A member of the RNA family "Ribosomal protein L20 leader" from Lactobacillus rodentium, 111 nucleotides long. NCBI's taxonomy places the organism under Bacteria, Bacillati, Bacillota, Lactobacillaceae, Lactobacillus. By type it is a cis-regulatory leader.
RNA sequence: GAGAACAAGAAGAAGCACCCGCUUCUCGCCUAAGUGAACAACCUCUGGGCUAAUCGAUAAUAUCUGUUGAUUAAAAGCGGGCGUUAACUUUGCCCGCUUUUUUCUUGUCCU
Numbered sequence: 001g002a003g004a005a006c007a008a009g010a011a012g013a014a015g016c017a018c019c020c021g022c023u024u025c026u027c028g029c030c031u032a033a034g035u036g037a038a039c040a041a042c043c044u045c046u047g048g049g050c051u052a053a054u055c056g057a058u059a060a061u062a063u064c065u066g067u068u069g070a071u072u073a074a075a076a077g078c079g080g081g082c083g084u085u086a087a088c089u090u091u092g093c094c095c096g097c098u099u100u101u102u103u104c105u106u107g108u109c110c111u
Stems, first nucleotide, its partner, number of pairs: 011026006028050003034042002076098008
A search with the family's covariance model found it, with a score of 71 bits.